[Rfam]
RNA sequence: CGCAUGGGGAAGCGGUCUCCCCGUUAGGCAGCAUGCCCAAGAAUCGCGUCCGGUUUUCCGAGAAGGACGCUCCAUG
Number, nucleotide and partner (000 for none) at each position: 001c000002g000003c000004a000005u023006g022007g021008g020009g019010a018011a000012g000013c000014g000015g000016u000017c000018u010019c009020c008021c007022c006023g005024u000025u000026a000027g000028g000029c000030a000031g000032c000033a000034u000035g000036c000037c000038c000039a000040a000041g000042a000043a000044u000045c000046g070047c069048g068049u067050c066051c065052g000053g000054u000055u000056u000057u000058c000059c000060g000061a000062g000063a000064a000065g051066g050067a049068c048069g047070c046071u000072c000073c000074a000075u000076g000
RNA: chrB-a RNA